[Rfam]
RNA sequence: AUUGGCAAAUGAUGUAAUUUCAGUUUUAUGCUUAACACACUGAUUAAACCAUGGUGACUAAAAACUCCGCUUAUUAUCUGAUGCCAAA
Numbered sequence: 001a002u003u004g005g006c007a008a009a010u011g012a013u014g015u016a017a018u019u020u021c022a023g024u025u026u027u028a029u030g031c032u033u034a035a036c037a038c039a040c041u042g043a044u045u046a047a048a049c050c051a052u053g054g055u056g057a058c059u060a061a062a063a064a065c066u067c068c069g070c071u072u073a074u075u076a077u078c079u080g081a082u083g084c085c086a087a088a
Base pairs, nucleotide, nucleotide: 003086004085005084006083007082
Small nucleolar RNA R16: an 88-nucleotide RNA from Lactuca sativa. The base pairs follow the family's consensus structure, which was predicted with PFOLD. Rfam classes the family as a C/D-box small nucleolar RNA.